[Rfam]
RNA sequence: CCUUUCCUUGUCAUGGGGUGGUAUGGGAGGCUCAAUGAACGUGUAGUGAGAGUCCCCCUGCUGACACCAUAUCAACACAUAUGCAUCACCUGAGCUUCAUGCUCAGGCUCGGAUGCAAUUUUUGGAAAC
Numbered sequence: 001c002c003u004u005u006c007c008u009u010g011u012c013a014u015g016g017g018g019u020g021g022u023a024u025g026g027g028a029g030g031c032u033c034a035a036u037g038a039a040c041g042u043g044u045a046g047u048g049a050g051a052g053u054c055c056c057c058c059u060g061c062u063g064a065c066a067c068c069a070u071a072u073c074a075a076c077a078c079a080u081a082u083g084c085a086u087c088a089c090c091u092g093a094g095c096u097u098c099a100u101g102c103u104c105a106g107g108c109u110c111g112g113a114u115g116c117a118a119u120u121u122u123u124g125g126a127a128a129c
Base pairs, nucleotide, nucleotide: 006018007017008016009015021061022060023059026056027055030053031052032051033050039047040046083116084115085114086113087112090106091105092104093103094102095101
This 129-nucleotide sequence from Perca flavescens belongs to the Rfam family "U4atac minor spliceosomal RNA". The match comes from Rfam's covariance-model search (89 bits). The literature on the family includes a 2005 paper in RNA by Lorkovic et al., "Evolutionary conservation of minor U12-type spliceosome between plants and humans". NCBI's taxonomy places the organism under Eukaryota, Metazoa, Neopterygii, Percidae, Perca.